[Rfam]
RNA sequence: UGUUUUGCAUCGGGAGAGACUGUCUGAAUGGCAGCGCCGAAGGAGCAACCGCCCCGGAAACUCUCAGGCCAAAGGACCGAUGCAAGCCG
Numbered sequence: 001u002g003u004u005u006u007g008c009a010u011c012g013g014g015a016g017a018g019a020c021u022g023u024c025u026g027a028a029u030g031g032c033a034g035c036g037c038c039g040a041a042g043g044a045g046c047a048a049c050c051g052c053c054c055c056g057g058a059a060a061c062u063c064u065c066a067g068g069c070c071a072a073a074g075g076a077c078c079g080a081u082g083c084a085a086g087c088c089g
Stems, first nucleotide, its partner, number of pairs: 006084008020034004036069003039065002043063003049057002
RNA: Glycine riboswitch aptamer
Organism: Limnohabitans radicicola